[Rfam]
RNA sequence: UUGCACAGUGAACACUCAAGUGUGUUUUAUAGUUCCCUUGGCUUUGACCCUGUGCUAUAGCAAUGCCUGUUCAUCUCUGCAUUGAAAGGAGUUUUUAUCCUUUUAAUGUAUUCAAAAAGCCAGUGCAUUA
Numbered sequence: 001u002u003g004c005a006c007a008g009u010g011a012a013c014a015c016u017c018a019a020g021u022g023u024g025u026u027u028u029a030u031a032g033u034u035c036c037c038u039u040g041g042c043u044u045u046g047a048c049c050c051u052g053u054g055c056u057a058u059a060g061c062a063a064u065g066c067c068u069g070u071u072c073a074u075c076u077c078u079g080c081a082u083u084g085a086a087a088g089g090a091g092u093u094u095u096u097a098u099c100c101u102u103u104u105a106a107u108g109u110a111u112u113c114a115a116a117a118a119g120c121c122a123g124u125g126c127a128u129u130a
Stems, first nucleotide, its partner, number of pairs: 003055006010049001013046002016041005022035001024033003060070003076116001078114002080108011

The family of this 130-nucleotide RNA sequence from Carlito syrichta is "Small nucleolar RNA SNORA22".
Its family is annotated with nucleolus and RNA processing in the Gene Ontology.
NCBI's taxonomy places the organism under Eukaryota, Bilateria, Deuterostomia, Tarsiiformes, Carlito.
ACA22 is a member of the H/ACA class of snoRNA that guide the sites of modification of uridines to pseudouridines.
It is annotated as an H/ACA-box small nucleolar RNA.